[Rfam]
RNA: mir-574 microRNA precursor family
Organism: Cnephaeus nilssonii
RNA sequence: AAGCCCAAAGAGAGAGGCAGGGUCUGAUCUGCAGCCUCCAUGGCAGCUGUUGAUCAGCCGUUGUCUCUCUUUCUCUCUG
Numbered sequence: 001a002a003g004c005c006c007a008a009a010g011a012g013a014g015a016g017g018c019a020g021g022g023u024c025u026g027a028u029c030u031g032c033a034g035c036c037u038c039c040a041u042g043g044c045a046g047c048u049g050u051u052g053a054u055c056a057g058c059c060g061u062u063g064u065c066u067c068u069c070u071u072u073c074u075c076u077c078u079g
Stems, first nucleotide, its partner, number of pairs: 009072012022059001024057006032049004